A member of the RNA family "Small nucleolar RNA Z161/Z228" from Salvia splendens, 92 nucleotides long. A search with the family's covariance model found it, with a score of 46 bits.
RNA sequence: CCCCCAAAUGAUGAUUCUGGAUUGAAUAUCUCACGACGGUCUUCUGAGAUGCUCAGUGUCAUCGUUGAUGUAAUCACAAUCCUUUGUUUCGG
Numbered sequence: 001c002c003c004c005c006a007a008a009u010g011a012u013g014a015u016u017c018u019g020g021a022u023u024g025a026a027u028a029u030c031u032c033a034c035g036a037c038g039g040u041c042u043u044c045u046g047a048g049a050u051g052c053u054c055a056g057u058g059u060c061a062u063c064g065u066u067g068a069u070g071u072a073a074u075c076a077c078a079a080u081c082c083u084u085u086g087u088u089u090c091g092g
Stems, first nucleotide, its partner, number of pairs: 001092002050058003
The literature on the family includes a 2003 paper in Nucleic Acids Res by Chen et al., "The high diversity of snoRNAs in plants: identification and comparative study of 120 snoRNA genes from Oryza sativa". Rfam 15.1 lists 630 matches to the family in 214 species. Rfam links the family to the GO terms nucleolus and RNA processing. The base pairs follow the family's consensus structure, which was predicted with PFOLD.